Shown here is an 82-nucleotide RNA sequence from Hevea brasiliensis, a member of the family "Small nucleolar RNA snoR53Y". Lineage of the source: Eukaryota > Magnoliopsida > rosids > Malpighiales > Hevea. The family is grouped with related families in Rfam's "snoR53 clan". A reference for the family is Brown et al. (2001), "Multiple snoRNA gene clusters from Arabidopsis", RNA.
[Rfam]
Nucleotides: 082
Stems, first nucleotide, its partner, number of pairs: 001081005
Number, partner (000 for none) and nucleotide at each position: 001081g002080u003079u004078c005077c006000c007000a008000a009000u010000g011000a012000u013000g014000c015000u016000u017000c018000u019000u020000a021000g022000u023000g024000a025000a026000c027000c028000a029000u030000g031000c032000u033000a034000a035000u036000g037000c038000u039000g040000a041000u042000c043000a044000u045000u046000a047000c048000a049000u050000g051000a052000c053000u054000g055000a056000a057000a058000u059000u060000a061000u062000u063000c064000u065000c066000u067000a068000c069000u070000c071000g072000c073000u074000g075000a076000g077005g078004g079003a080002a081001c082000c